The record is an 86-nucleotide sequence from Pseudomonas guineae, which matches "gyrA RNA" in Rfam. A search with the family's covariance model found it, with a score of 64 bits.
RNA sequence: UCGUGAGUCGCUAUGAGCCGCAAGGCACGGCGACAGGCUCCAUACCGUUCAGGACGAAUGGCGCGGAGUUUCACCAGAAAAAGGAA
Dot-bracket structure: ......((((((.((..((....)))).))))))(((((((.(.((((((.....)))))).).)))))))...............